[Rfam]
RNA: Group II catalytic intron D1-D4-6
RNA sequence: GAAACCCCGCCGAGGAAACCUUAAGCCGAGGAACUAGUAGCAAGUCUUGGAGUAUCAGUAGCGAUAUUGAUGCUUAAGCGUAGACAGUUAGGCAGUAGGUCCGAAGUCCGCAAGGGCGAGUGAUUGAACCUCGAAAAUUUUACAAAGUCGGGAAGGCCGACUGGCUCACAAACCAGGAAGGCAGGAUUGCAUCAAGCGUUAACGGCGAGCGUGAUGUGGCUUCCCCGAGGUCAAAGAGCC
Numbered sequence: 001g002a003a004a005c006c007c008c009g010c011c012g013a014g015g016a017a018a019c020c021u022u023a024a025g026c027c028g029a030g031g032a033a034c035u036a037g038u039a040g041c042a043a044g045u046c047u048u049g050g051a052g053u054a055u056c057a058g059u060a061g062c063g064a065u066a067u068u069g070a071u072g073c074u075u076a077a078g079c080g081u082a083g084a085c086a087g088u089u090a091g092g093c094a095g096u097a098g099g100u101c102c103g104a105a106g107u108c109c110g111c112a113a114g115g116g117c118g119a120g121u122g123a124u125u126g127a128a129c130c131u132c133g134a135a136a137a138u139u140u141u142a143c144a145a146a147g148u149c150g151g152g153a154a155g156g157c158c159g160a161c162u163g164g165c166u167c168a169c170a171a172a173c174c175a176g177g178a179a180g181g182c183a184g185g186a187u188u189g190c191a192u193c194a195a196g197c198g199u200u201a202a203c204g205g206c207g208a209g210c211g212u213g214a215u216g217u218g219g220c221u222u223c224c225c226c227g228a229g230g231u232c233a234a235a236g237a238g239c240c
Stems, first nucleotide, its partner, number of pairs: 013035002019031004025206002038090004044085004048080002050075011125234001126232001128231006150225006156182003161176004187219008196210002
Dot-bracket structure: ............((....((((..[[.))))..))..((((..(((((((((((((((((....)))))))))))...)).)))).))))..................................((.((((((................(((((((((..((((........))))...)))....((((((((.((.......]]..)).))))))))))))))))))))).)......